RNA sequence: GUGCAUCCAGUAGGAAUUGAACAUACGAUUUGCCAAUUAUGAGUUGGCGCUUUAACCAUCAAUAAUGGAUGC
Numbered sequence: 001g002u003g004c005a006u007c008c009a010g011u012a013g014g015a016a017u018u019g020a021a022c023a024u025a026c027g028a029u030u031u032g033c034c035a036a037u038u039a040u041g042a043g044u045u046g047g048c049g050c051u052u053u054a055a056c057c058a059u060c061a062a063u064a065a066u067g068g069a070u071g072c
Stems, first nucleotide, its partner, number of pairs: 003072006010026003014022001039066002043063005049057001

Rfam assigns this 72-nucleotide RNA from Ziziphus jujuba to the family "Plastid-ycf2 5UTR RNA". Pairs were carried over by alignment from the consensus structure, which was predicted with LocARNA. Plastid ycf2 is a non-coding RNA (ncRNA) recognised in plastids.